SAH (S-adenosyl-L-homocysteine) riboswitch aptamer: a 90-nucleotide sequence from Modicisalibacter muralis. Taxonomically the source falls in Modicisalibacter (Bacteria, Pseudomonadota, Gammaproteobacteria, Oceanospirillales).

RNA sequence: CUGCCCGAGGGGCGCUGCAGCGCAUGUGCCCACAAUGGCCGUGCGCGAGGCUCGGGCAGGUUCGUGCAAAUGCAACGGCGCCCAUUCCCC
Numbered sequence: 001c002u003g004c005c006c007g008a009g010g011g012g013c014g015c016u017g018c019a020g021c022g023c024a025u026g027u028g029c030c031c032a033c034a035a036u037g038g039c040c041g042u043g044c045g046c047g048a049g050g051c052u053c054g055g056g057c058a059g060g061u062u063c064g065u066g067c068a069a070a071u072g073c074a075a076c077g078g079c080g081c082c083c084a085u086u087c088c089c090c
Stems, first nucleotide, its partner, number of pairs: 002058007021045006